[Rfam]
RNA sequence: UUUCAGUAGUUUUAAGACAUGCAAAUCGUUGUUUCUGAAAGUAAAAUUUUAUUUAUAAAUUAUAAAAUGAUUAAUAAGUAAAAAUGAUAAUAUGAAAUAAGGUGUAGAGGUGAGGAUAGUAAAUAAGAUACCCUGUAGUCUUCAUAAAUAGAAGAUAUUAUUCUAAGUAAAUUAUUUAAAUUUAUUAUUUGUAUUUUUAAAUUAAUUUACUUGUAUUAUAUUAAAUUAUAAUUGUUUAUCAUUAAUUGUACAAAUUUAAAUAAUAACUGACUAAAGCAAGAAUAUUAUUUAAAUAACAAUAAUGUUAAAUAAAGGAAUAAAAUAAAAAAGCUAUUUUUAUUAAAAAAAGGAAAUUUUCUGCUAUAGGAUUCUAUUUAUUUUGAUUAGGUAGUUGGUAUGGGUAAAGGCCUACCAAGCCUACAAUCAAUAGCCAUGCUUGACAGAGCAGAUGGCCACAUUGGGACUGAAAUCUCCCAAGUAGUUUUAUACUACCAGCAGUCAAGAAUAUUAGUCAAUGCUCGCAAGAGUGAACUAGCUAACUGAAAUCGCAAAUGUGUCAUUUGCGAUAAAGUAAGAGAAAAUUAUGAUAUUAUCUUACUA
Numbered sequence: 001u002u003u004c005a006g007u008a009g010u011u012u013u014a015a016g017a018c019a020u021g022c023a024a025a026u027c028g029u030u031g032u033u034u035c036u037g038a039a040a041g042u043a044a045a046a047u048u049u050u051a052u053u054u055a056u057a058a059a060u061u062a063u064a065a066a067a068u069g070a071u072u073a074a075u076a077a078g079u080a081a082a083a084a085u086g087a088u089a090a091u092a093u094g095a096a097a098u099a100a101g102g103u104g105u106a107g108a109g110g111u112g113a114g115g116a117u118a119g120u121a122a123a124u125a126a127g128a129u130a131c132c133c134u135g136u137a138g139u140c141u142u143c144a145u146a147a148a149u150a151g152a153a154g155a156u157a158u159u160a161u162u163c164u165a166a167g168u169a170a171a172u173u174a175u176u177u178a179a180a181u182u183u184a185u186u187a188u189u190u191g192u193a194u195u196u197u198u199a200a201a202u203u204a205a206u207u208u209a210c211u212u213g214u215a216u217u218a219u220a221u222u223a224a225a226u227u228a229u230a231a232u233u234g235u236u237u238a239u240c241a242u243u244a245a246u247u248g249u250a251c252a253a254a255u256u257u258a259a260a261u262a263a264u265a266a267c268u269g270a271c272u273a274a275a276g277c278a279a280g281a282a283u284a285u286u287a288u289u290u291a292a293a294u295a296a297c298a299a300u301a302a303u304g305u306u307a308a309a310u311a312a313a314g315g316a317a318u319a320a321a322a323u324a325a326a327a328a329a330g331c332u333a334u335u336u337u338u339a340u341u342a343a344a345a346a347a348a349g350g351a352a353a354u355u356u357u358c359u360g361c362u363a364u365a366g367g368a369u370u371c372u373a374u375u376u377a378u379u380u381u382g383a384u385u386a387g388g389u390a391g392u393u394g395g396u397a398u399g400g401g402u403a404a405a406g407g408c409c410u411a412c413c414a415a416g417c418c419u420a421c422a423a424u425c426a427a428u429a430g431c432c433a434u435g436c437u438u439g440a441c442a443g444a445g446c447a448g449a450u451g452g453c454c455a456c457a458u459u460g461g462g463a464c465u466g467a468a469a470u471c472u473c474c475c476a477a478g479u480a481g482u483u484u485u486a487u488a489c490u491a492c493c494a495g496c497a498g499u500c501a502a503g504a505a506u507a508u509u510a511g512u513c514a515a516u517g518c519u520c521g522c523a524a525g526a527g528u529g530a531a532c533u534a535g536c537u538a539a540c541u542g543a544a545a546u547c548g549c550a551a552a553u554g555u556g557u558c559a560u561u562u563g564c565g566a567u568a569a570a571g572u573a574a575g576a577g578a579a580a581a582u583u584a585u586g587a588u589a590u591u592a593u594c595u596u597a598c599u600a
Stems, first nucleotide, its partner, number of pairs: 002544006008537002011502001016500003020497003025103003030100001033096002110456003118379008127371002132367007140314003147306004323342003327338004349359003380427003387418003392415006399409002430453004435446004458477006479491004508534001510533003516529005547565007571598006580588001
Rfam assigns this 600-nucleotide part of an RNA to the family "Bacterial small subunit ribosomal RNA".
It scores 430 bits against the family's covariance model.
Its family is annotated with ribosome and structural constituent of ribosome in the Gene Ontology.